Annotation:
A member of the RNA family "Bacterial RNase P class B" from Limosilactobacillus fermentum, 374 nucleotides long. Ribonuclease P (RNase P) is a ubiquitous endoribonuclease, found in archaea, bacteria and eukarya as well as chloroplasts and mitochondria. Its best characterised activity is the generation of mature 5'-ends of tRNAs by cleaving the 5'-leader elements of precursor-tRNAs.
[Rfam]
RNA sequence: GGCUUUGGGUAAUUGAGCACGGCAACGGUCGUGUUAGGAAGGUCCAUGCUCGCACGGGCUGCGAUGCCCGUAGUGUUUGUGCUCGCUGAAAAAAUAAGGCGGGGCACCGGCUUGCCCGGUGACGGCGGAAAAACGGGCUACGGUUUUACUAUGCCUCAGUAUUCCUGAAAAGUGCCACAGUGACGAAGCGUUAAGGGAAACCUUAACGGUGGAACGCGGUAAACCCCUCAAGCGGUAAACCCAAACUACGGUAGGGGAGCUUUGGAUAGCGAAUUGAAGCGAUUCCAGGGGAGCGCAUCUUGCGCUGAGAUAGAUGAUUACCACGGUUCGGUCUUGCCUGAGGACCGGACUUUGACAAAACAUGGCCUACAGAA
Numbered sequence: 001g002g003c004u005u006u007g008g009g010u011a012a013u014u015g016a017g018c019a020c021g022g023c024a025a026c027g028g029u030c031g032u033g034u035u036a037g038g039a040a041g042g043u044c045c046a047u048g049c050u051c052g053c054a055c056g057g058g059c060u061g062c063g064a065u066g067c068c069c070g071u072a073g074u075g076u077u078u079g080u081g082c083u084c085g086c087u088g089a090a091a092a093a094a095u096a097a098g099g100c101g102g103g104g105c106a107c108c109g110g111c112u113u114g115c116c117c118g119g120u121g122a123c124g125g126c127g128g129a130a131a132a133a134c135g136g137g138c139u140a141c142g143g144u145u146u147u148a149c150u151a152u153g154c155c156u157c158a159g160u161a162u163u164c165c166u167g168a169a170a171a172g173u174g175c176c177a178c179a180g181u182g183a184c185g186a187a188g189c190g191u192u193a194a195g196g197g198a199a200a201c202c203u204u205a206a207c208g209g210u211g212g213a214a215c216g217c218g219g220u221a222a223a224c225c226c227c228u229c230a231a232g233c234g235g236u237a238a239a240c241c242c243a244a245a246c247u248a249c250g251g252u253a254g255g256g257g258a259g260c261u262u263u264g265g266a267u268a269g270c271g272a273a274u275u276g277a278a279g280c281g282a283u284u285c286c287a288g289g290g291g292a293g294c295g296c297a298u299c300u301u302g303c304g305c306u307g308a309g310a311u312a313g314a315u316g317a318u319u320a321c322c323a324c325g326g327u328u329c330g331g332u333c334u335u336g337c338c339u340g341a342g343g344a345c346c347g348g349a350c351u352u353u354g355a356c357a358a359a360a361c362a363u364g365g366c367c368u369a370c371a372g373a374a
Stems, first nucleotide, its partner, number of pairs: 004374003007370001008322007016035006040368003044365005050235004054071006077231003081227001082103006104123001105121006124226002127165004135156004142150003172224002174220003189208008240256003260290007292306005325351011